[Rfam]
RNA: SAM (S-adenosyl methionine) riboswitch aptamer
Organism: Arthrobacter yangruifuii
RNA sequence: CUUCAGGAGACACGGCCGCCAAGCUCCGACUUGGCCGUGCACCAACCCCAUGCUUCGCGGGUGGUUCGGAUGACGAAGCGGCCUGCACCGCCUUUUCAGGCGUCCGGUGCGGGCAAGAGCACCAG
Numbered sequence: 001c002u003u004c005a006g007g008a009g010a011c012a013c014g015g016c017c018g019c020c021a022a023g024c025u026c027c028g029a030c031u032u033g034g035c036c037g038u039g040c041a042c043c044a045a046c047c048c049c050a051u052g053c054u055u056c057g058c059g060g061g062u063g064g065u066u067c068g069g070a071u072g073a074c075g076a077a078g079c080g081g082c083c084u085g086c087a088c089c090g091c092c093u094u095u096u097c098a099g100g101c102g103u104c105c106g107g108u109g110c111g112g113g114c115a116a117g118a119g120c121a122c123c124a125g
Stems, first nucleotide, its partner, number of pairs: 001078004009040001011039006022031002041065003046061003081114010